[Rfam]
RNA: sucC RNA
Organism: Pseudomonas jinjuensis
RNA sequence: GUCACAGGUGGUGCGAUGCGUCGAGCGUCGCGCCGAAUGCGCAAUACCCAAGACGAAAACGGUAGACAAG
Numbered sequence: 001g002u003c004a005c006a007g008g009u010g011g012u013g014c015g016a017u018g019c020g021u022c023g024a025g026c027g028u029c030g031c032g033c034c035g036a037a038u039g040c041g042c043a044a045u046a047c048c049c050a051a052g053a054c055g056a057a058a059a060c061g062g063u064a065g066a067c068a069a070g
Stems, first nucleotide, its partner, number of pairs: 009035006016028004